[Rfam]
RNA sequence: AAAGGAGCAAUAAUGCCCUCUUGAUAGAACAAGAAAGAAUUUAUCGCUCCUUUAUUU
Numbered sequence: 001a002a003a004g005g006a007g008c009a010a011u012a013a014u015g016c017c018c019u020c021u022u023g024a025u026a027g028a029a030c031a032a033g034a035a036a037g038a039a040u041u042u043a044u045c046g047c048u049c050c051u052u053u054a055u056u057u
Stems, first nucleotide, its partner, number of pairs: 001053008010044004014039001019034005
The record is a 57-nucleotide sequence from Olea europaea, which matches "Plastid-psbA-3 3UTR RNA" in Rfam. The literature on the family includes a 2023 paper in Plant Commun by Richter et al., "Retrograde signaling in plants: A critical review focusing on the GUN pathway and beyond". Plastid psbA-3 is a non-coding RNA (ncRNA) present in plastids. Pairs were carried over by alignment from the consensus structure, which was predicted with LocARNA. It scores 56 bits against the family's covariance model. The source organism's lineage runs through Eukaryota, Tracheophyta, Spermatophyta, Mesangiospermae and Olea europaea.